Shown here is a 160-nucleotide RNA from Metarhizium acridum, a member of the family "Small nucleolar RNA snR80". A reference for the family is Schattner et al. (2004), "Genome-wide searching for pseudouridylation guide snoRNAs: analysis of the Saccharomyces cerevisiae genome", Nucleic Acids Res. The organism belongs to Metarhizium acridum, within Eukaryota. It scores 50 bits against the family's covariance model. The family's RNA type in Rfam is H/ACA-box small nucleolar RNA.
RNA sequence: AAACCCUCAGCUACACUCUGAGAUUGACCAGACUUCACGGUGGUCUAUUUCAAUUUUUGCUCGAGGAAGAAUAAUUCUCAUUGUGGCCCCUUACUCACCGCGACACUCUGGCCUUUUUUUUUGCCCCCUGGGUGUAGUGGUCCAUAAAUCUGGCCAACAU
Numbered sequence: 001a002a003a004c005c006c007u008c009a010g011c012u013a014c015a016c017u018c019u020g021a022g023a024u025u026g027a028c029c030a031g032a033c034u035u036c037a038c039g040g041u042g043g044u045c046u047a048u049u050u051c052a053a054u055u056u057u058u059g060c061u062c063g064a065g066g067a068a069g070a071a072u073a074a075u076u077c078u079c080a081u082u083g084u085g086g087c088c089c090c091u092u093a094c095u096c097a098c099c100g101c102g103a104c105a106c107u108c109u110g111g112c113c114u115u116u117u118u119u120u121u122u123g124c125c126c127c128c129u130g131g132g133u134g135u136a137g138u139g140g141u142c143c144a145u146a147a148a149u150c151u152g153g154c155c156a157a158c159a160u
Base pairs, nucleotide, nucleotide: 007064008063019052020051021050022049023048024047026045027044028043029042085155086154087153088152098140099139100138101137103135104134105133107132108131109130110129111128